RNA sequence: CUUUAACAAUCUGGAACAAGCUGAAAUUUGAAACGAUGCGGCGACGAUUAUCUUUGGUGAUAACGUGGCUGUAUCAGAGUCUCUCAAAUAAUCGCAGCGCGAAUGUGACUUGAUGUAUCAAAAAGACACCUUCGG
Numbered sequence: 001c002u003u004u005a006a007c008a009a010u011c012u013g014g015a016a017c018a019a020g021c022u023g024a025a026a027u028u029u030g031a032a033a034c035g036a037u038g039c040g041g042c043g044a045c046g047a048u049u050a051u052c053u054u055u056g057g058u059g060a061u062a063a064c065g066u067g068g069c070u071g072u073a074u075c076a077g078a079g080u081c082u083c084u085c086a087a088a089u090a091a092u093c094g095c096a097g098c099g100c101g102a103a104u105g106u107g108a109c110u111u112g113a114u115g116u117a118u119c120a121a122a123a124a125g126a127c128a129c130c131u132u133c134g135g
Stems, first nucleotide, its partner, number of pairs: 020095002023093002028088002034077001036074007100134003105129003